RNA: Plastid-ycf2 5UTR RNA
RNA sequence: AUGCAUUCACUAGGAAUUAAACCUAUGAAUUCGCCAAUUAUGAGUUAGGUGCGUUAACCAUUCAGCCAUGGAUGC
Numbered sequence: 001a002u003g004c005a006u007u008c009a010c011u012a013g014g015a016a017u018u019a020a021a022c023c024u025a026u027g028a029a030u031u032c033g034c035c036a037a038u039u040a041u042g043a044g045u046u047a048g049g050u051g052c053g054u055u056a057a058c059c060a061u062u063c064a065g066c067c068a069u070g071g072a073u074g075c
Stems, first nucleotide, its partner, number of pairs: 003075006011025004040069003044066003048062004